[Rfam]
Bacterial large subunit ribosomal RNA: a 266-nucleotide part of an RNA from Syntrophobacter fumaroxidans.
RNA sequence: GGAAUUUUGAGGGGAUCUGUCCCUAGUACGAGAGGACCGGGAUGGACGAACCUCUGGUGUACCAGUUGUCCCGCCAGGGGCAGCGCUGGGUAGCUACGUUCGGAAGGGAUAACCGCUGAAAGCAUCUAAGCGGGAAACCCACCCCAAGAUGAGAAUUCCCCUCCGGAGCGAUCCGGACUGAAGGCUCCUCGUAGACUACGAGGUUGAUAGGUCGGGUGUGUAAGCGCAGCAAUGCGUUGAGCUAACCGAUACUAAUGGGCCGUGAG
Numbered sequence: 001g002g003a004a005u006u007u008u009g010a011g012g013g014g015a016u017c018u019g020u021c022c023c024u025a026g027u028a029c030g031a032g033a034g035g036a037c038c039g040g041g042a043u044g045g046a047c048g049a050a051c052c053u054c055u056g057g058u059g060u061a062c063c064a065g066u067u068g069u070c071c072c073g074c075c076a077g078g079g080g081c082a083g084c085g086c087u088g089g090g091u092a093g094c095u096a097c098g099u100u101c102g103g104a105a106g107g108g109a110u111a112a113c114c115g116c117u118g119a120a121a122g123c124a125u126c127u128a129a130g131c132g133g134g135a136a137a138c139c140c141a142c143c144c145c146a147a148g149a150u151g152a153g154a155a156u157u158c159c160c161c162u163c164c165g166g167a168g169c170g171a172u173c174c175g176g177a178c179u180g181a182a183g184g185c186u187c188c189u190c191g192u193a194g195a196c197u198a199c200g201a202g203g204u205u206g207a208u209a210g211g212u213c214g215g216g217u218g219u220g221u222a223a224g225c226g227c228a229g230c231a232a233u234g235c236g237u238u239g240a241g242c243u244a245a246c247c248g249a250u251a252c253u254a255a256u257g258g259g260c261c262g263u264g265a266g
Stems, first nucleotide, its partner, number of pairs: 001159008011145004017045007047102005055096003062089005067082006106140003113133005162177005180263001183261004187203005208254003211250005218242001224237005

Overview:
Taxonomically the source falls in Syntrophobacter fumaroxidans (Bacteria, Syntrophobacterales, Syntrophobacteraceae, Syntrophobacter). It scores 2935 bits against the family's covariance model. Its family is annotated with ribosome and structural constituent of ribosome in the Gene Ontology.